Source information: The family of this 130-nucleotide RNA sequence from Otolemur garnettii is "Small nucleolar RNA SNORA11". It is annotated as an H/ACA-box small nucleolar RNA. Pairs were carried over by alignment from the consensus structure, which was predicted with RNAalifold. NCBI's taxonomy places the organism under Eukaryota, Vertebrata, Gnathostomata, Theria, Otolemur. It scores 109 bits against the family's covariance model.

Nucleotides: 130
Base pairs, nucleotide, nucleotide: 003056004055005054006053007052008051013046014045015044016043017042018041019040020039021038022036025034070123071122072121077116078115079114082112083111085105086104087103091099093097
Number, partner (000 for none) and nucleotide at each position: 001000g002000u003056g004055g005054u006053g007052u008051g009000c010000u011000c012000a013046g014045a015044g016043c017042a018041g019040g020039g021038g022036g023000a024000g025034c026000u027000g028000a029000a030000g031000a032000g033000u034025g035000a036022c037000u038021c039020c040019u041018c042017u043016g044015u045014u046013u047000a048000u049000u050000a051008c052007a053006c054005a055004u056003c057000c058000a059000a060000c061000a062000g063000g064000a065000a066000u067000c068000u069000g070123g071122g072121g073000u074000c075000a076000u077116u078115g079114u080000g081000a082112u083111g084000a085105g086104g087103g088000g089000c090000a091099c092000a093097a094000a095000g096000c097093u098000g099091g100000g101000c102000g103087c104086c105085u106000c107000c108000c109000u110000a111083u112082g113000a114079a115078c116077a117000a118000a119000u120000u121072c122071c123070c124000u125000a126000c127000a128000c129000g130000u

On this family, see Gu et al., Nucleic Acids Res 2005: "A novel experimental approach for systematic identification of box H/ACA snoRNAs from eukaryotes". Rfam's curators write: U107 (SNORA11) is a member of the H/ACA class of snoRNAs that guide the sites of modification of uridines to pseudouridines. This snoRNA was identified by RT-PCR from blood cells and its expression confirmed by Northern blot analysis. There is no predicted target for this guide snRNA.